Overview: A member of the RNA family "mir-339 microRNA precursor family" from Phyllostomus discolor, 91 nucleotides long. The family's consensus secondary structure was predicted with RNAalifold. A search with the family's covariance model found it, with a score of 77 bits.
RNA sequence: CGGGGCGGCCGCGCUCCCUGUCCUCCAGGAGCUCGCUCACGUCGGCUGUGCGCUCCUCGGGGCCAGAGCCCGCGUCCGCCUCAGCGCCCGC
Dot-bracket structure: ....((((.((((..(.(((.(.((.(((.((.(((((.....))..))).)).))).)).).))).)..)))).))))............